A member of the RNA family "Saccharopolyspora sRNA 350" from Allokutzneria albata, 510 nucleotides long. The source organism's lineage runs through Bacteria, Bacillati, Actinomycetes, Pseudonocardiaceae and Allokutzneria. A reference for the family is Liu et al. (2013), "Prediction and characterization of small non-coding RNAs related to secondary metabolites in Saccharopolyspora erythraea", PLoS One.
RNA sequence: UUGACCGUGUACUCCCAGAUGUCGCCUUCCGCGGCCAGGGUCUCGUCGCCGAAGUGGUCGCCGUCGGCGAGGGUGCCCAGCACGGUCUCGUCGCCGUACUCGCCGGUGCCGAUCUUGGUCACCUUGCCGUGCGCGAUCAGGAACGCCUGGUCGGAGCGGUUGCCGAACUCGACGAUCACAUCGCCGGGCUGGUACUCCUGCUGGACGAACCGGUCCGCGAGGGCGGAGAGCACCUCCUCGUCGUCGAAGCCGCGCAGCAGUGGCAGCUCGCAGAGCUCGGGUGGGAUGACGCGGAUGGUCGCCCCGGUGUUGGUGAAGGUGACCCGGCCGUCCCCGACCGCGUAGCUGAGCCUGCGGUUGACCCGGUAGGCACCACCAGCGGCCCGCACCCACGGCAGCACCUUCAGCAGCCAGCGCGAGGAGAUGCCCUGCAUCUGCGGGACCGACUUGGUCGUCGUCGCGAGGUUCCGCGCCGCGGCCGUCCCGAGGCUGAGCUGCCGGCUCGCCCCG
Numbered sequence: 001u002u003g004a005c006c007g008u009g010u011a012c013u014c015c016c017a018g019a020u021g022u023c024g025c026c027u028u029c030c031g032c033g034g035c036c037a038g039g040g041u042c043u044c045g046u047c048g049c050c051g052a053a054g055u056g057g058u059c060g061c062c063g064u065c066g067g068c069g070a071g072g073g074u075g076c077c078c079a080g081c082a083c084g085g086u087c088u089c090g091u092c093g094c095c096g097u098a099c100u101c102g103c104c105g106g107u108g109c110c111g112a113u114c115u116u117g118g119u120c121a122c123c124u125u126g127c128c129g130u131g132c133g134c135g136a137u138c139a140g141g142a143a144c145g146c147c148u149g150g151u152c153g154g155a156g157c158g159g160u161u162g163c164c165g166a167a168c169u170c171g172a173c174g175a176u177c178a179c180a181u182c183g184c185c186g187g188g189c190u191g192g193u194a195c196u197c198c199u200g201c202u203g204g205a206c207g208a209a210c211c212g213g214u215c216c217g218c219g220a221g222g223g224c225g226g227a228g229a230g231c232a233c234c235u236c237c238u239c240g241u242c243g244u245c246g247a248a249g250c251c252g253c254g255c256a257g258c259a260g261u262g263g264c265a266g267c268u269c270g271c272a273g274a275g276c277u278c279g280g281g282u283g284g285g286a287u288g289a290c291g292c293g294g295a296u297g298g299u300c301g302c303c304c305c306g307g308u309g310u311u312g313g314u315g316a317a318g319g320u321g322a323c324c325c326g327g328c329c330g331u332c333c334c335c336g337a338c339c340g341c342g343u344a345g346c347u348g349a350g351c352c353u354g355c356g357g358u359u360g361a362c363c364c365g366g367u368a369g370g371c372a373c374c375a376c377c378a379g380c381g382g383c384c385c386g387c388a389c390c391c392a393c394g395g396c397a398g399c400a401c402c403u404u405c406a407g408c409a410g411c412c413a414g415c416g417c418g419a420g421g422a423g424a425u426g427c428c429c430u431g432c433a434u435c436u437g438c439g440g441g442a443c444c445g446a447c448u449u450g451g452u453c454g455u456c457g458u459c460g461c462g463a464g465g466u467u468c469c470g471c472g473c474c475g476c477g478g479c480c481g482u483c484c485c486g487a488g489g490c491u492g493a494g495c496u497g498c499c500g501g502c503u504c505g506c507c508c509c510g
Stems, first nucleotide, its partner, number of pairs: 007389004014382002018328001021325001022322005028316002035313004040308003045305001048302002051299001054233002058229002061226004065111004075103001077102001079100002082097005119220002122217001127212001129210002131206001134203002139199003145195001154189001157186004161178002235295003240290006251281001253279002256277003260271003329342003351379001354376001356374002362370002391431002394428004399423001401421001403418001405416001407415001437476004443470001445468002447465003451461002477509002480505002484501003487496002
Notes: The family has 2 seed sequences and 1,170 matches in Rfam 15.1. The base pairs follow the family's consensus structure, which was predicted with RNAfold. Rfam classes the family as an antisense RNA.